Background
The family of this 159-nucleotide RNA sequence from Halalkalibacter wakoensis is "glmS glucosamine-6-phosphate activated ribozyme aptamer". The base pairs follow the family's consensus structure, which is taken from published work. Rfam's curators write: This entry contains a glucosamine-6-phosphate activated ribozyme that is found in the mRNA for GlmS. GlmS is an enzyme that uses fructose-6-phosphate and glutamine to generate glucosamine-6-phosphate. The ribozyme catalyses self cleavage of the glmS mRNA that is thought to regulate GlmS activity.

RNA sequence: GAUAAGUUAAAAGCGCCUGGACUAUCUGAGCAUAGUUGACGAGGAGAGGGAGUAUCGAUUGUUCGGCGGAUGCCCUCCGGUUGUGAGCAUGACAACCGUUAAACUUCUGAAUAAAACAAAGAGGCAACUCUUUGCACAAAAUCAGAAGUAAGCAUGCCU
Numbered sequence: 001g002a003u004a005a006g007u008u009a010a011a012a013g014c015g016c017c018u019g020g021a022c023u024a025u026c027u028g029a030g031c032a033u034a035g036u037u038g039a040c041g042a043g044g045a046g047a048g049g050g051a052g053u054a055u056c057g058a059u060u061g062u063u064c065g066g067c068g069g070a071u072g073c074c075c076u077c078c079g080g081u082u083g084u085g086a087g088c089a090u091g092a093c094a095a096c097c098g099u100u101a102a103a104c105u106u107c108u109g110a111a112u113a114a115a116a117c118a119a120a121g122a123g124g125c126a127a128c129u130c131u132u133u134g135c136a137c138a139a140a141a142u143c144a145g146a147a148g149u150a151a152g153c154a155u156g157c158c159u
Stems, first nucleotide, its partner, number of pairs: 020037006046077005055066004078098006103149007117134007